[Rfam]
RNA sequence: UGUCCUCGUGGGGCGCUCAGGUCCGCCGCAUCUCCUGAGUCCGCGGGGCACGGCCGGCCGGGUCCGUGGUUGUGGAGUGGCCUCCUCUGAUAAGCCGCGAUUCCCUGGCCGGCCACUAU
Numbered sequence: 001u002g003u004c005c006u007c008g009u010g011g012g013g014c015g016c017u018c019a020g021g022u023c024c025g026c027c028g029c030a031u032c033u034c035c036u037g038a039g040u041c042c043g044c045g046g047g048g049c050a051c052g053g054c055c056g057g058c059c060g061g062g063u064c065c066g067u068g069g070u071u072g073u074g075g076a077g078u079g080g081c082c083u084c085c086u087c088u089g090a091u092a093a094g095c096c097g098c099g100a101u102u103c104c105c106u107g108g109c110c111g112g113c114c115a116c117u118a119u
Stems, first nucleotide, its partner, number of pairs: 003050001004048007016039006052114011
RNA: EcpR1
Organism: Parvibaculum lavamentivorans